[Rfam]
RNA sequence: AUAUAUAAUAGAGGAGCAUUUAUUGUGGUAACUUUUAACAUUCAAAGGAUCGGAAGAUCUUGCGAAGUUAAAAGUGAAGGACUUAAUUGCCGAAAGGUUGGAUCUAUAUAGAGCUAACCUUGGUCAAUAUGGGAAAAUCCAUCUUGACUGUCACAACUUUAGUUGUGGAGAGCUAUUUCUUUU
Numbered sequence: 001a002u003a004u005a006u007a008a009u010a011g012a013g014g015a016g017c018a019u020u021u022a023u024u025g026u027g028g029u030a031a032c033u034u035u036u037a038a039c040a041u042u043c044a045a046a047g048g049a050u051c052g053g054a055a056g057a058u059c060u061u062g063c064g065a066a067g068u069u070a071a072a073a074g075u076g077a078a079g080g081a082c083u084u085a086a087u088u089g090c091c092g093a094a095a096g097g098u099u100g101g102a103u104c105u106a107u108a109u110a111g112a113g114c115u116a117a118c119c120u121u122g123g124u125c126a127a128u129a130u131g132g133g134a135a136a137a138u139c140c141a142u143c144u145u146g147a148c149u150g151u152c153a154c155a156a157c158u159u160u161a162g163u164u165g166u167g168g169a170g171a172g173c174u175a176u177u178u179c180u181u182u183u
Stems, first nucleotide, its partner, number of pairs: 007177005016090003020086003031075008094121008103112003122149006129142004151168007

Shown here is a 183-nucleotide RNA sequence from Psychrilyobacter sp. S5, a member of the family "Lysine riboswitch aptamer". Rfam 15.1 lists 3,224 matches to the family in 1,923 species. Gene Ontology term of the family: lysine biosynthetic process. The family's consensus secondary structure is taken from published work.